Source information: A member of the RNA family "Ribosomal protein L10 leader" from Pseudanabaena sp. FACHB-2040, 162 nucleotides long. By type it is a cis-regulatory leader. Rfam's curators write: This family is a putative r-protein leader autoregulatory structure found in B. subtilis and other low-GC Gram-positive bacteria. It is located in the 5' untranslated regions of mRNAs encoding ribosomal proteins L10 and L12 (rplJ-rplL). A Rho-independent transcription terminator structure that is probably involved in regulation is included at the 3' end.
RNA sequence: CCUAAAACUGUAUAACAACCGGAGACAGCAGGUGCUGACUUGUGUUAGCUGAAAGUCCUGCCGAGGUAUGCAUUCGCUUCUAGAAACUCACUGUACUAAGCAGUGAAUCUAGUUUUGUGAGUCAACCCCGGCAUCUCUUCGCCGGGGUUUUUGAAUUUCUGG
Numbered sequence: 001c002c003u004a005a006a007a008c009u010g011u012a013u014a015a016c017a018a019c020c021g022g023a024g025a026c027a028g029c030a031g032g033u034g035c036u037g038a039c040u041u042g043u044g045u046u047a048g049c050u051g052a053a054a055g056u057c058c059u060g061c062c063g064a065g066g067u068a069u070g071c072a073u074u075c076g077c078u079u080c081u082a083g084a085a086a087c088u089c090a091c092u093g094u095a096c097u098a099a100g101c102a103g104u105g106a107a108u109c110u111a112g113u114u115u116u117g118u119g120a121g122u123c124a125a126c127c128c129c130g131g132c133a134u135c136u137c138u139u140c141g142c143c144g145g146g147g148u149u150u151u152u153g154a155a156u157u158u159c160u161g162g
Stems, first nucleotide, its partner, number of pairs: 028061005034049006126147007